Rfam assigns this 127-nucleotide sequence from Chenopodium quinoa to the family "MIR408 microRNA precursor family". The family has 8 seed sequences and 299 matches in Rfam 15.1. The base pairs follow the family's consensus structure, which was predicted with WAR. Taxonomically the source falls in Chenopodium (Eukaryota, Tracheophyta, eudicotyledons, Amaranthaceae). A search with the family's covariance model found it, with a score of 82 bits.

[Rfam]
RNA sequence: GAGAUAUAUCAAAUGAAAGACGGGAAAGAGGUUGCGCAAAGAUAGAGCUACUUAACAGGUUGAGCAUUUAUGUUUUUGGCUCUACCUUUGCACUGCCUCUUCCCUGGCUUUCAUUUCUCCUCUACCC
Numbered sequence: 001g002a003g004a005u006a007u008a009u010c011a012a013a014u015g016a017a018a019g020a021c022g023g024g025a026a027a028g029a030g031g032u033u034g035c036g037c038a039a040a041g042a043u044a045g046a047g048c049u050a051c052u053u054a055a056c057a058g059g060u061u062g063a064g065c066a067u068u069u070a071u072g073u074u075u076u077u078g079g080c081u082c083u084a085c086c087u088u089u090g091c092a093c094u095g096c097c098u099c100u101u102c103c104c105u106g107g108c109u110u111u112c113a114u115u116u117c118u119c120c121u122c123u124a125c126c127c
Base pairs, nucleotide, nucleotide: 017110018109019108021106022105023104024103026101027100029098030097031096032095034093036091037090038089039088040087041086045082046081